[Rfam]
RNA: Glycine riboswitch aptamer
Organism: Psychrobacter sp. KH172YL61
RNA sequence: CAUAACAAAUCUGGAGAGUGGUAAGAACGGACGACGUCUUACCCACCGAAGGGGGAGAAAAUACGCAAUCAUUCAUUGGAGCUUUAUAUAAUUGCUCACAAAUGAGGCGUGUUGAAAAUCUCAGGUCACAGGACAGAUAGGGCUUU
Number, nucleotide and partner (000 for none) at each position: 001c000002a000003u000004a000005a000006c141007a000008a000009a138010u137011c136012u135013g134014g000015a000016g000017a000018g000019u000020g043021g042022u041023a040024a039025g038026a037027a000028c000029g000030g000031a000032c000033g000034a000035c000036g000037u026038c025039u024040u023041a022042c021043c020044c000045a126046c125047c124048g122049a121050a000051g000052g120053g119054g000055g000056a000057g000058a113059a112060a000061a000062u000063a000064c000065g000066c000067a000068a000069u000070c000071a000072u000073u000074c000075a000076u000077u000078g000079g000080a000081g000082c000083u000084u000085u000086a000087u000088a000089u000090a000091a000092u000093u000094g000095c000096u000097c000098a000099c000100a000101a000102a000103u000104g000105a000106g000107g000108c000109g000110u000111g000112u059113u058114g000115a000116a000117a000118a000119u053120c052121u049122c048123a000124g047125g046126u045127c000128a000129c000130a000131g000132g000133a000134c013135a012136g011137a010138u009139a000140g000141g006142g000143c000144u000145u000146u000